The family of this 383-nucleotide RNA from Sphingobacterium corticibacter is "Bacterial RNase P class A". It is annotated as a ribozyme. It scores 241 bits against the family's covariance model. For this family Rfam cites "The Ribonuclease P Database" (Brown, Nucleic Acids Res, 1999).
RNA sequence: AAGCAAACCGGUUCUAUCGCUGCUCUAUACGUAGAGGAGAGGAAAGUCCGGGCAACGUAGAGCGACACGCUUCCUAACGGGAAGGCGCAUUUUUCGGAAUGCGAUAGAAAGUGCCACAGAAAAUAUACCGCCUUUGCAAAAAGGUAAGGGUGAAAACGUGAGGUAAGAGCUCACGGCUUUGUGUAGUGAUAUGCAUCGCGGUAAACCUCGUGUGUUGAAAAACCAAAUAGGUUGCAGGCUUCGGAAAGGGCGGCUCGCUUUUUGUCUUCGGACACCUGCAAUGGGUAGGUUGAUACAGUCUGUGUGCGAAUGCAGGCGUAGAUAAAUGAUAGAGGUCUGAUCUCGGUUGGACACAGAACCCGGCUUACAAGGUUUGCUUCUUU
Numbered sequence: 001a002a003g004c005a006a007a008c009c010g011g012u013u014c015u016a017u018c019g020c021u022g023c024u025c026u027a028u029a030c031g032u033a034g035a036g037g038a039g040a041g042g043a044a045a046g047u048c049c050g051g052g053c054a055a056c057g058u059a060g061a062g063c064g065a066c067a068c069g070c071u072u073c074c075u076a077a078c079g080g081g082a083a084g085g086c087g088c089a090u091u092u093u094u095c096g097g098a099a100u101g102c103g104a105u106a107g108a109a110a111g112u113g114c115c116a117c118a119g120a121a122a123a124u125a126u127a128c129c130g131c132c133u134u135u136g137c138a139a140a141a142a143g144g145u146a147a148g149g150g151u152g153a154a155a156a157c158g159u160g161a162g163g164u165a166a167g168a169g170c171u172c173a174c175g176g177c178u179u180u181g182u183g184u185a186g187u188g189a190u191a192u193g194c195a196u197c198g199c200g201g202u203a204a205a206c207c208u209c210g211u212g213u214g215u216u217g218a219a220a221a222a223c224c225a226a227a228u229a230g231g232u233u234g235c236a237g238g239c240u241u242c243g244g245a246a247a248g249g250g251c252g253g254c255u256c257g258c259u260u261u262u263u264g265u266c267u268u269c270g271g272a273c274a275c276c277u278g279c280a281a282u283g284g285g286u287a288g289g290u291u292g293a294u295a296c297a298g299u300c301u302g303u304g305u306g307c308g309a310a311u312g313c314a315g316g317c318g319u320a321g322a323u324a325a326a327u328g329a330u331a332g333a334g335g336u337c338u339g340a341u342c343u344c345g346g347u348u349g350g351a352c353a354c355a356g357a358a359c360c361c362g363g364c365u366u367a368c369a370a371g372g373u374u375u376g377c378u379u380c381u382u383u
Stems, first nucleotide, its partner, number of pairs: 001379009011368001012334007020039002023036005044366003048363005053217004060269002065213005070084005085105001086103007106208002111206002113202003128149002130145006157175006180195006221291004231282006263274004298317008